The record is a 70-nucleotide RNA, which matches "Hepatitis C virus stem-loop VII" in Rfam. The family's RNA type in Rfam is cis-regulatory element. For this family Rfam cites "The Coding Region of the HCV Genome Contains a Network of Regulatory RNA Structures" (Pirakitikulr et al., Mol Cell, 2016).
[Rfam]
RNA sequence: CAGGCUCAUAGCCCAGGGUGGUAGGGCGGCCAUAUGUGGCCACUACCUCUUUAACUGGGCUGUGAAAACA
Numbered sequence: 001c002a003g004g005c006u007c008a009u010a011g012c013c014c015a016g017g018g019u020g021g022u023a024g025g026g027c028g029g030c031c032a033u034a035u036g037u038g039g040c041c042a043c044u045a046c047c048u049c050u051u052u053a054a055c056u057g058g059g060c061u062g063u064g065a066a067a068a069c070a
Stems, first nucleotide, its partner, number of pairs: 006065011017050002020047002026040002029037002